[Rfam]
RNA: Selenocysteine insertion sequence 1
RNA sequence: UUUACCGGAUGACGGCCCCCUUCUAAACCACAUGGGGAGGAGGCCUGAAGAGGGUAAA
Numbered sequence: 001u002u003u004a005c006c007g008g009a010u011g012a013c014g015g016c017c018c019c020c021u022u023c024u025a026a027a028c029c030a031c032a033u034g035g036g037g038a039g040g041a042g043g044c045c046u047g048a049a050g051a052g053g054g055u056a057a058a
Stems, first nucleotide, its partner, number of pairs: 001058005014045004019040005028035002